[Rfam]
Nucleotides: 144
Base pairs, nucleotide, nucleotide: 004141005140006139007138008137009136010135017029018028019027031124032123033113034112035063036062037061038060058111059110067088068087093109094108095107096106097105115127116126117125
Number, partner (000 for none) and nucleotide at each position: 001000g002000g003000u004141u005140u006139c007138c008137u009136u010135c011000g012000g013000g014000g015000c016000a017029g018028g019027g020000u021000g022000a023000a024000a025000u026000u027019c028018c029017c030000u031124a032123c033113c034112g035063g036062c037061g038060g039000u040000g041000a042000u043000g044000a045000g046000c047000g048000a049000a050000u051000g052000c053000u054000c055000u056000u057000a058111g059110u060038c061037c062036g063035u064000g065000a066000c067088c068087c069000g070000g071000c072000u073000a074000a075000u076000a077000c078000a079000u080000a081000u082000u083000a084000g085000a086000c087068g088067g089000u090000g091000g092000a093109u094108u095107u096106g097105g098000u099000g100000a101000a102000a103000c104000u105097c106096c107095a108094a109093g110059g111058c112034c113033g114000a115127c116126a117125g118000u119000g120000a121000a122000a123032g124031u125117c126116u127115g128000g129000a130000u131000g132000g133000g134000a135010g136009a137008a138007g139006g140005a141004a142000c143000g144000g